[Rfam]
RNA sequence: AGUUCGUGCUAGGGGUGCCUUUGGCUGAGAGAUGAUUUUAUCAUUAACCCUUUAAACCUGAUCUAGAUAGUACUAGCGUAGGGAAGCUUGAGUGUUUUAAU
Numbered sequence: 001a002g003u004u005c006g007u008g009c010u011a012g013g014g015g016u017g018c019c020u021u022u023g024g025c026u027g028a029g030a031g032a033u034g035a036u037u038u039u040a041u042c043a044u045u046a047a048c049c050c051u052u053u054a055a056a057c058c059u060g061a062u063c064u065a066g067a068u069a070g071u072a073c074u075a076g077c078g079u080a081g082g083g084a085a086g087c088u089u090g091a092g093u094g095u096u097u098u099a100a101u
Base pairs, nucleotide, nucleotide: 006089008087009086010085011051012050013049014048017025018024019023032044033043034042035041036040057082058081059080060079063076064075065074066073